[Rfam]
RNA sequence: GUGAAAAAGAAGAGGCACCCGCUUCUCACCUGGAGGACGCUUAAGCUGUUAACAGGUUUUGACUGGCAAACGAUGAUGUGAAUGAACACGGAAAUCUAAUGUGCGGGUGUAUGUACCCGCACUUUUUUAUAUUU
Numbered sequence: 001g002u003g004a005a006a007a008a009g010a011a012g013a014g015g016c017a018c019c020c021g022c023u024u025c026u027c028a029c030c031u032g033g034a035g036g037a038c039g040c041u042u043a044a045g046c047u048g049u050u051a052a053c054a055g056g057u058u059u060u061g062a063c064u065g066g067c068a069a070a071c072g073a074u075g076a077u078g079u080g081a082a083u084g085a086a087c088a089c090g091g092a093a094a095u096c097u098a099a100u101g102u103g104c105g106g107g108u109g110u111a112u113g114u115a116c117c118c119g120c121a122c123u124u125u126u127u128u129a130u131a132u133u134u
Base pairs, nucleotide, nucleotide: 011026012025013024014023015022016021028057029056030055036050037049038048039046040045102121103120104119105118106117107116108115109114

The record is a 134-nucleotide RNA from Caldibacillus thermoamylovorans, which matches "Ribosomal protein L20 leader" in Rfam. Gene Ontology term of the family: regulation of gene expression.